[Rfam]
RNA: algC RNA
RNA sequence: AAAAGUGUGACCCUUGUGGUUAGGGCCAACUGUUGCCUGAAGAAAGGUAA
Numbered sequence: 001a002a003a004a005g006u007g008u009g010a011c012c013c014u015u016g017u018g019g020u021u022a023g024g025g026c027c028a029a030c031u032g033u034u035g036c037c038u039g040a041a042g043a044a045a046g047g048u049a050a
Stems, first nucleotide, its partner, number of pairs: 009021004